[Rfam]
RNA sequence: GCGCGGGUAGCCAAGUGGUCAAAGGCGCAGCGCUUAGGACGCUGUCCUAUAGAGGUCCGCAGGUUCGAAUCCUGUCCCGCGCA
Numbered sequence: 001g002c003g004c005g006g007g008u009a010g011c012c013a014a015g016u017g018g019u020c021a022a023a024g025g026c027g028c029a030g031c032g033c034u035u036a037g038g039a040c041g042c043u044g045u046c047c048u049a050u051a052g053a054g055g056u057c058c059g060c061a062g063g064u065u066c067g068a069a070u071c072c073u074g075u076c077c078c079g080c081g082c083a
Stems, first nucleotide, its partner, number of pairs: 001082007010026003028044005059075005